The family of this 66-nucleotide RNA sequence is "RAGATH-18 RNA".
RNA sequence: GCUGUGGAGAGCAAAACAAAUAUGAGUAGAUAUUUUAUAUCAAAAAUAUGUUCGUUGAAACAGCAA
Numbered sequence: 001g002c003u004g005u006g007g008a009g010a011g012c013a014a015a016a017c018a019a020a021u022a023u024g025a026g027u028a029g030a031u032a033u034u035u036u037a038u039a040u041c042a043a044a045a046a047u048a049u050g051u052u053c054g055u056u057g058a059a060a061c062a063g064c065a066a
Base pairs, nucleotide, nucleotide: 001064002063003062004061005060009053010052011051012050013049021048022047023046029041030040031039033037
About this RNA:
Rfam's curators write: Actinobacteria, Firmicutes, Fusobacteria, Thermotogae (1 example). It is one of the family's seed sequences.